[Rfam]
RNA sequence: CGGGCGUCGUAAUGUAAGUCGCUCUGGAUAAGAGCGUCUGCUAAAUGACUUAAA
Numbered sequence: 001c002g003g004g005c006g007u008c009g010u011a012a013u014g015u016a017a018g019u020c021g022c023u024c025u026g027g028a029u030a031a032g033a034g035c036g037u038c039u040g041c042u043a044a045a046u047g048a049c050u051u052a053a054a
Stems, first nucleotide, its partner, number of pairs: 013043001014041003020036006
Rfam assigns this 54-nucleotide RNA sequence from Salmo salar to the family "UnaL2 LINE 3' element". Rfam 15.1 lists 493,311 matches to the family in 99 species. The base pairs follow the family's consensus structure, which is taken from published work. It is annotated as a cis-regulatory element. The source organism's lineage runs through Eukaryota, Opisthokonta, Eumetazoa, Craniata and Salmo.